Rfam assigns this 75-nucleotide RNA sequence from Platysteira castanea to the family "mir-1759 microRNA precursor family". The base pairs follow the family's consensus structure, which was predicted with RNAalifold. A search with the family's covariance model found it, with a score of 74 bits.
RNA sequence: GCUGUUGUAGGAUAGGAGGGAGAGAGGUGUUACCUUGUAAGCUGCCACCUUUCCCAUCCUCUCAUCUGCAGAAGC
Numbered sequence: 001g002c003u004g005u006u007g008u009a010g011g012a013u014a015g016g017a018g019g020g021a022g023a024g025a026g027g028u029g030u031u032a033c034c035u036u037g038u039a040a041g042c043u044g045c046c047a048c049c050u051u052u053c054c055c056a057u058c059c060u061c062u063c064a065u066c067u068g069c070a071g072a073a074g075c
Base pairs, nucleotide, nucleotide: 001075002074003073005071006070007069008068009067010066011063014060015059016058017057019055020054022053023052024051025050026049027048028047029046031044032043034041035040